Shown here is a 78-nucleotide sequence from Neogale vison, a member of the family "mir-147 microRNA precursor family". Rfam 15.1 lists 757 matches to the family in 593 species. Its family is annotated with miRNA-mediated post-transcriptional gene silencing and RISC complex in the Gene Ontology. NCBI's taxonomy places the organism under Eukaryota, Bilateria, Deuterostomia, Theria, Neogale.
[Rfam]
RNA sequence: CCUGAAUCUAGAGGAAACAUUUCUGCACACACCAGACUACUGAAGUCAGCGUGUGGAAAUGCCUUCGCUACAUUCUUC
Numbered sequence: 001c002c003u004g005a006a007u008c009u010a011g012a013g014g015a016a017a018c019a020u021u022u023c024u025g026c027a028c029a030c031a032c033c034a035g036a037c038u039a040c041u042g043a044a045g046u047c048a049g050c051g052u053g054u055g056g057a058a059a060u061g062c063c064u065u066c067g068c069u070a071c072a073u074u075c076u077u078c
Base pairs, nucleotide, nucleotide: 004075005074006073007072009070010069011068013066014065015064018061019060020059021058022057023056024055025054026053027052028051032049